Rfam assigns this 73-nucleotide RNA from Coregonus sp. 'balchen' to the family "Small nucleolar RNA SNORD47". Pairs were carried over by alignment from the consensus structure, which was predicted with ILM. A search with the family's covariance model found it, with a score of 66 bits.
RNA sequence: AACUUAUGAUGAAGAGAUUCUGCCAAAUGAUUUGUGAUUAUAUAUAUAUACCGUUCCAUUUAUAUCUGAGGUU
Numbered sequence: 001a002a003c004u005u006a007u008g009a010u011g012a013a014g015a016g017a018u019u020c021u022g023c024c025a026a027a028u029g030a031u032u033u034g035u036g037a038u039u040a041u042a043u044a045u046a047u048a049u050a051c052c053g054u055u056c057c058a059u060u061u062a063u064a065u066c067u068g069a070g071g072u073u
Stems, first nucleotide, its partner, number of pairs: 001073004